[Rfam]
RNA: chrB-a RNA
Organism: Allobosea thiooxidans
RNA sequence: UCAGAGGGGUUCCAUCGCGACGACCCCGUGAGGCGCCAGCCCAACGUUCGCGUCCAUUGUCCUCGUAGAACAGGAUGGACGCCGCCAUG
Dot-bracket structure: .....(((((............)))))......................((((((((.................)))))))).......